[Rfam]
RNA sequence: GCCGGCGUGGCGGAAUGGCAGACGCGGCAGACUCAAAAUCUGUUUAUGGUGACAUAGUACGGGUUCAAGUCCCGUCGCCGGCA
Numbered sequence: 001g002c003c004g005g006c007g008u009g010g011c012g013g014a015a016u017g018g019c020a021g022a023c024g025c026g027g028c029a030g031a032c033u034c035a036a037a038a039u040c041u042g043u044u045u046a047u048g049g050u051g052a053c054a055u056a057g058u059a060c061g062g063g064u065u066c067a068a069g070u071c072c073c074g075u076c077g078c079c080g081g082c083a
Stems, first nucleotide, its partner, number of pairs: 001082007010025003027043005059075005

tRNA: an 83-nucleotide RNA sequence from Firmicutes bacterium AF36-19BH. Rfam describes the family as follows. Transfer RNA (tRNA) molecules are approximately 80 nucleotides in length. Clan: tRNA clan. For this family Rfam cites "The tertiary structure of tRNA and the development of the genetic code" (Hou, Trends Biochem Sci, 1993). Rfam classes the family as a transfer RNA. The source organism's lineage runs through Bacteria, Bacillati and Bacillota. The match comes from Rfam's covariance-model search (60 bits).